This 58-nucleotide sequence from Asclepias syriaca belongs to the Rfam family "Plastid-psbA-3 3UTR RNA". The literature on the family includes a 2023 paper in Plant Commun by Richter et al., "Retrograde signaling in plants: A critical review focusing on the GUN pathway and beyond".

RNA sequence: AAAGGAGCAAAAAUCACCUUCUUGUUCUAUCAAGAAGAUGCUUUUUGCUCCUUUAUUU
Numbered sequence: 001a002a003a004g005g006a007g008c009a010a011a012a013a014u015c016a017c018c019u020u021c022u023u024g025u026u027c028u029a030u031c032a033a034g035a036a037g038a039u040g041c042u043u044u045u046u047g048c049u050c051c052u053u054u055a056u057u058u
Stems, first nucleotide, its partner, number of pairs: 001054013014040001019036006
Dot-bracket structure: ((((((((((((((....((((((......))))))...).)))))))))))))....

Record summary: Rfam's curators put it in the seed alignment. Rfam's curators write: Plastid psbA-3 is a non-coding RNA (ncRNA) present in plastids. It was identified in inverted repeat sequences in the 3 prime untranslate region (3UTR) of photosystem II quinone-binding protein (psbA). Pairs were carried over by alignment from the consensus structure, which was predicted with LocARNA. The family is grouped with related families in Rfam's "Plastid-psbA 3UTR RNA clan". Lineage of the source: Eukaryota > Magnoliopsida > lamiids > Asclepiadeae > Asclepias. The family's RNA type in Rfam is cis-regulatory element.